RNA sequence: AUGCGCUUGUCGCCUUACCGUCACGGCGGUCAGGCCAACGCGCUUGAUGAUCUGGUCACGCCGCUGGCCCACAAGGCCACCGAUAGGCGCAUCACAGAAACCGCCGACUACGGUCGGAUAGGUCUGGCGCAGUUUCCCCGCUGAUCGGCAUGCCUUCGGCGGGGUGACGUGGAUAGCGUGAUAGAACG
Numbered sequence: 001a002u003g004c005g006c007u008u009g010u011c012g013c014c015u016u017a018c019c020g021u022c023a024c025g026g027c028g029g030u031c032a033g034g035c036c037a038a039c040g041c042g043c044u045u046g047a048u049g050a051u052c053u054g055g056u057c058a059c060g061c062c063g064c065u066g067g068c069c070c071a072c073a074a075g076g077c078c079a080c081c082g083a084u085a086g087g088c089g090c091a092u093c094a095c096a097g098a099a100a101c102c103g104c105c106g107a108c109u110a111c112g113g114u115c116g117g118a119u120a121g122g123u124c125u126g127g128c129g130c131a132g133u134u135u136c137c138c139c140g141c142u143g144a145u146c147g148g149c150a151u152g153c154c155u156u157c158g159g160c161g162g163g164g165u166g167a168c169g170u171g172g173a174u175a176g177c178g179u180g181a182u183a184g185a186a187c188g
Stems, first nucleotide, its partner, number of pairs: 004042003012035004017030005056181006062082002065079005087130004095126004101122002104117005133167002136164009147154002
The record is a 188-nucleotide RNA sequence from Bordetella genomosp. 4, which matches "RT-15 RNA" in Rfam. The base pairs follow the family's consensus structure, which is taken from published work. A search with the family's covariance model found it, with a score of 172 bits. It is annotated as a small RNA. Taxonomically the source falls in Bordetella (Bacteria, Betaproteobacteria, Burkholderiales, Alcaligenaceae).